The family of this 149-nucleotide RNA from Pan troglodytes is "Small Cajal body specific RNA 11". The family's consensus secondary structure was predicted with RNAalifold. scaRNAs are a specific class of small nuclear RNAs which localise to the Cajal bodies and guide the modification of RNA polymerase II transcribed spliceosomal RNAs U1, U2, U4, U5 and U12. NCBI's taxonomy places the organism under Eukaryota, Boreoeutheria, Primates, Haplorrhini, Pan. The match comes from Rfam's covariance-model search (50 bits). The family's RNA type in Rfam is small Cajal body RNA. Rfam links the family to the GO terms nucleolus, Cajal body and RNA processing.
RNA sequence: UUGUCCUGGCCUAUGCUUUUUCUACUCCCCUCUGCUUUUUUGUCCCCUGUGCUCAGUUCUAACAAAGUAGUCUGGCAGGCACACACACAGUCUCCUUCAGUUAGGAGGACUGUCUUUAGAAUAGAGCUGUCUCAAGACAAGAGUACAAU
Numbered sequence: 001u002u003g004u005c006c007u008g009g010c011c012u013a014u015g016c017u018u019u020u021u022c023u024a025c026u027c028c029c030c031u032c033u034g035c036u037u038u039u040u041u042g043u044c045c046c047c048u049g050u051g052c053u054c055a056g057u058u059c060u061a062a063c064a065a066a067g068u069a070g071u072c073u074g075g076c077a078g079g080c081a082c083a084c085a086c087a088c089a090g091u092c093u094c095c096u097u098c099a100g101u102u103a104g105g106a107g108g109a110c111u112g113u114c115u116u117u118a119g120a121a122u123a124g125a126g127c128u129g130u131c132u133c134a135a136g137a138c139a140a141g142a143g144u145a146c147a148a149u
Base pairs, nucleotide, nucleotide: 002083003082004081005079006078007077008076010075011074024071025070026069028067031064033062097142098141100138101137102136105133106132107131108130111129112127113126115124116123